Streptomyces-metH RNA: a 124-nucleotide sequence from Streptomyces xanthophaeus. NCBI's taxonomy places the organism under Bacteria, Actinomycetota, Kitasatosporales, Streptomycetaceae, Streptomyces. Rfam classes the family as a small RNA. It scores 104 bits against the family's covariance model.
RNA sequence: CCGUCCGCCACGUGGGACGACCCAUCCGGGUCCCGGGCCGCGCGGUUACCCUGACCGCGUGCACCCUUGACAUAGGAGGGGGUGCAAAGCCGACAGCCGUCGCAUCCCAGGGAGCAUAACCAUG
Numbered sequence: 001c002c003g004u005c006c007g008c009c010a011c012g013u014g015g016g017a018c019g020a021c022c023c024a025u026c027c028g029g030g031u032c033c034c035g036g037g038c039c040g041c042g043c044g045g046u047u048a049c050c051c052u053g054a055c056c057g058c059g060u061g062c063a064c065c066c067u068u069g070a071c072a073u074a075g076g077a078g079g080g081g082g083u084g085c086a087a088a089g090c091c092g093a094c095a096g097c098c099g100u101c102g103c104a105u106c107c108c109a110g111g112g113a114g115c116a117u118a119a120c121c122a123u124g
Base pairs, nucleotide, nucleotide: 060086061085062084063083065081066080067079068078089103090102092101093100094099